[Rfam]
RNA sequence: AAGAUCAUACUUCACAGGAUCAUUUCUGUAGUAUAUCUUGACUUGUUUCCCACCAGAAACUUGUCUCCUUUCCACCCACGAUGACGAGUAACGACGCUGGCUUCUGAGCGUGAAGCAGGUCGGGAGUGUAACUACUUCGGUAGUAUCUACUCUCGGCCAUUGAGGACCGUUUCCGGUAUCUCCUAGUGGGAAACUGGAAGGAAAUCAGCGUGUUCAGAGUGGU
Numbered sequence: 001a002a003g004a005u006c007a008u009a010c011u012u013c014a015c016a017g018g019a020u021c022a023u024u025u026c027u028g029u030a031g032u033a034u035a036u037c038u039u040g041a042c043u044u045g046u047u048u049c050c051c052a053c054c055a056g057a058a059a060c061u062u063g064u065c066u067c068c069u070u071u072c073c074a075c076c077c078a079c080g081a082u083g084a085c086g087a088g089u090a091a092c093g094a095c096g097c098u099g100g101c102u103u104c105u106g107a108g109c110g111u112g113a114a115g116c117a118g119g120u121c122g123g124g125a126g127u128g129u130a131a132c133u134a135c136u137u138c139g140g141u142a143g144u145a146u147c148u149a150c151u152c153u154c155g156g157c158c159a160u161u162g163a164g165g166a167c168c169g170u171u172u173c174c175g176g177u178a179u180c181u182c183c184u185a186g187u188g189g190g191a192a193a194c195u196g197g198a199a200g201g202a203a204a205u206c207a208g209c210g211u212g213u214u215c216a217g218a219g220u221g222g223u
Stems, first nucleotide, its partner, number of pairs: 001039005007034005015028005045060005076222004094211007102203004108170003118158004124152004131144005173197002176194002179191004
RNA: Small nucleolar RNA U3
Organism: Daphnia pulex